[Rfam]
Background:
Rfam assigns this 90-nucleotide RNA sequence to the family "Small nucleolar SNORD12/SNORD106". Clan: SNORD12 clan.
RNA sequence: GCUGGUGAACUGAUGAUAUCAUUUCUUUCCCCGUCAGAUCGACCCUGUUGAUCUCAAAUACUAAUUGCCAGUUUUGUCUGAUGCAUCAGC
Numbered sequence: 001g002c003u004g005g006u007g008a009a010c011u012g013a014u015g016a017u018a019u020c021a022u023u024u025c026u027u028u029c030c031c032c033g034u035c036a037g038a039u040c041g042a043c044c045c046u047g048u049u050g051a052u053c054u055c056a057a058a059u060a061c062u063a064a065u066u067g068c069c070a071g072u073u074u075u076g077u078c079u080g081a082u083g084c085a086u087c088a089g090c
Stems, first nucleotide, its partner, number of pairs: 001090007009082001
Description:
Its family is annotated with nucleolus and RNA processing in the Gene Ontology. It is one of the family's seed sequences.